The family of this 82-nucleotide RNA from Chondrus crispus is "tRNA".

RNA sequence: GGGUCGGUGCCCGAGUGGUUAAUGGGGGCGGACUGUAAAUCCGCUGGCUUUGCCUACGUUGGUUCAAAUCCAACCCGGCCUA
Dot-bracket structure: (((((((..((((.........)))).(((((.......))))).............(((((.......)))))))))))).
It is annotated as a transfer RNA. NCBI's taxonomy places the organism under Eukaryota, Rhodophyta, Florideophyceae, Rhodymeniophycidae, Chondrus.